[Rfam]
RNA sequence: UUCCGGUUGUCCAAAUGCCGGGGUUACUAAAGAGGCACACCUUCAUUGCCGGCAGUGCGGAACGGGUCUCCCAUUUCCAAGCCAAGGCAGACAAAGCGGAUUUUCAGCCGGGCAGGCUGAGAGUUCAUCGCCGCGCAGAGCGCGUUCAUGGAUC
Numbered sequence: 001u002u003c004c005g006g007u008u009g010u011c012c013a014a015a016u017g018c019c020g021g022g023g024u025u026a027c028u029a030a031a032g033a034g035g036c037a038c039a040c041c042u043u044c045a046u047u048g049c050c051g052g053c054a055g056u057g058c059g060g061a062a063c064g065g066g067u068c069u070c071c072c073a074u075u076u077c078c079a080a081g082c083c084a085a086g087g088c089a090g091a092c093a094a095a096g097c098g099g100a101u102u103u104u105c106a107g108c109c110g111g112g113c114a115g116g117c118u119g120a121g122a123g124u125u126c127a128u129c130g131c132c133g134c135g136c137a138g139a140g141c142g143c144g145u146u147c148a149u150g151g152a153u154c
Base pairs, nucleotide, nucleotide: 001023002022003021004020005019006018007017034050035049036048037047057136058135059134081097082096105119106118107117108116109115